Archaeal large subunit ribosomal RNA: a 443-nucleotide part of an RNA from Methanococcus voltae. The literature on the family includes a 2001 paper in Science by Yusupov et al., "Crystal structure of the ribosome at 5.5 A resolution". The sequence is in the family's curated seed alignment.
RNA sequence: CCCCCCGAAGUGACUCUCAGGUCAGCCGAAGUUUAGAUAGUCGGCAAGGUAGAGCACUGAUAGGGAGGUUAGGGGAAGAAAUUCCUCGCUUUUCUGUCAAACUCCGAACUUGUCGUCGUCGUAUACUUCGAGUCAGGGCAUACGGGUAAGCUGUAUGUCCGAGACGGGAAUAGCCGUGACCUGGGUUAAGGUCCCUAAGUGCCGAUUAAGUGUGAACACGAAGGGUGUCCUUGGUCUAAGACAGCAGGGAGGUUGGCUUAGAAGCAGCCAUCCUUUAACGAGUGCGUAACAGCUCACCUGUCGAGAUCAAGGGUCCCGAAAAUGGACGGGGCUAAAAUCGGCCACCGAGACCCAGGAGUACCGUAAGGUAAUCUUGUAGGGGGGCGUUCUGCGAGGGCAGAAGUUCGGCUGUGAAGUCGAGUGGACCUCGUAGAAAUGAUGAU
Numbered sequence: 001c002c003c004c005c006c007g008a009a010g011u012g013a014c015u016c017u018c019a020g021g022u023c024a025g026c027c028g029a030a031g032u033u034u035a036g037a038u039a040g041u042c043g044g045c046a047a048g049g050u051a052g053a054g055c056a057c058u059g060a061u062a063g064g065g066a067g068g069u070u071a072g073g074g075g076a077a078g079a080a081a082u083u084c085c086u087c088g089c090u091u092u093u094c095u096g097u098c099a100a101a102c103u104c105c106g107a108a109c110u111u112g113u114c115g116u117c118g119u120c121g122u123a124u125a126c127u128u129c130g131a132g133u134c135a136g137g138g139c140a141u142a143c144g145g146g147u148a149a150g151c152u153g154u155a156u157g158u159c160c161g162a163g164a165c166g167g168g169a170a171u172a173g174c175c176g177u178g179a180c181c182u183g184g185g186u187u188a189a190g191g192u193c194c195c196u197a198a199g200u201g202c203c204g205a206u207u208a209a210g211u212g213u214g215a216a217c218a219c220g221a222a223g224g225g226u227g228u229c230c231u232u233g234g235u236c237u238a239a240g241a242c243a244g245c246a247g248g249g250a251g252g253u254u255g256g257c258u259u260a261g262a263a264g265c266a267g268c269c270a271u272c273c274u275u276u277a278a279c280g281a282g283u284g285c286g287u288a289a290c291a292g293c294u295c296a297c298c299u300g301u302c303g304a305g306a307u308c309a310a311g312g313g314u315c316c317c318g319a320a321a322a323u324g325g326a327c328g329g330g331g332c333u334a335a336a337a338u339c340g341g342c343c344a345c346c347g348a349g350a351c352c353c354a355g356g357a358g359u360a361c362c363g364u365a366a367g368g369u370a371a372u373c374u375u376g377u378a379g380g381g382g383g384g385c386g387u388u389c390u391g392c393g394a395g396g397g398c399a400g401a402a403g404u405u406c407g408g409c410u411g412u413g414a415a416g417u418c419g420a421g422u423g424g425a426c427c428u429c430g431u432a433g434a435a436a437u438g439a440u441g442a443u
Stems, first nucleotide, its partner, number of pairs: 001384006011024005026132001027130006036120003040117001042115006052105001053103002059098010072087006136160009165176003180356007190346003199343001201342006223317003227314010244301005250274003255269003280295001284293002357374002359370004385438001387435010403422008